[Rfam]
RNA sequence: AAGCCAAAGGAUGAUUAUGGAUUUAAAUUUCUCACGACGGUCGUCUGAGACAGCUUGGUCUGUCUAUUGAUGUGAUAAUCCAGCUGUCUGAUGGUU
Numbered sequence: 001a002a003g004c005c006a007a008a009g010g011a012u013g014a015u016u017a018u019g020g021a022u023u024u025a026a027a028u029u030u031c032u033c034a035c036g037a038c039g040g041u042c043g044u045c046u047g048a049g050a051c052a053g054c055u056u057g058g059u060c061u062g063u064c065u066a067u068u069g070a071u072g073u074g075a076u077a078a079u080c081c082a083g084c085u086g087u088c089u090g091a092u093g094g095u096u
Stems, first nucleotide, its partner, number of pairs: 001096002004093001051062003
RNA: Small nucleolar RNA Z161/Z228